[Rfam]
Background: The record is a 69-nucleotide sequence from Sus scrofa, which matches "mir-302 microRNA precursor family" in Rfam. Its family is annotated with miRNA-mediated post-transcriptional gene silencing and RISC complex in the Gene Ontology.
RNA sequence: CCACAACCUAAACACAGAUGUACUUGCUUUGAAACUAAAAAGGGAAGUGCUUCUAUGUUUUAGUGAUGG
Numbered sequence: 001c002c003a004c005a006a007c008c009u010a011a012a013c014a015c016a017g018a019u020g021u022a023c024u025u026g027c028u029u030u031g032a033a034a035c036u037a038a039a040a041a042g043g044g045a046a047g048u049g050c051u052u053c054u055a056u057g058u059u060u061u062a063g064u065g066a067u068g069g
Stems, first nucleotide, its partner, number of pairs: 001069003006064002010060005016054003020050006027043002